[Rfam]
A member of the RNA family "Small nucleolar RNA SNORD34" from Salix brachista, 83 nucleotides long. The literature on the family includes a 2002 paper in Mol Cell Biol by Galardi et al., "Purified box C/D snoRNPs are able to reproduce site-specific 2'-O-methylation of target RNA in vitro". It scores 47 bits against the family's covariance model. The family is grouped with related families in Rfam's "SNORD34 clan". snoRNA U34 is found in intron 5 of the ribosomal protein L13a gene in humans. Its family is annotated with RNA processing and nucleolus in the Gene Ontology.
RNA sequence: GGAGGCCUGUGAUGAUUAAAUUUGCCUACAUUGUCUGAUCAUCUAAUGAAUAACAGAGACAUAUUAUUAGUUCUGAGGCCUCU
Numbered sequence: 001g002g003a004g005g006c007c008u009g010u011g012a013u014g015a016u017u018a019a020a021u022u023u024g025c026c027u028a029c030a031u032u033g034u035c036u037g038a039u040c041a042u043c044u045a046a047u048g049a050a051u052a053a054c055a056g057a058g059a060c061a062u063a064u065u066a067u068u069a070g071u072u073c074u075g076a077g078g079c080c081u082c083u
Stems, first nucleotide, its partner, number of pairs: 001083002004080004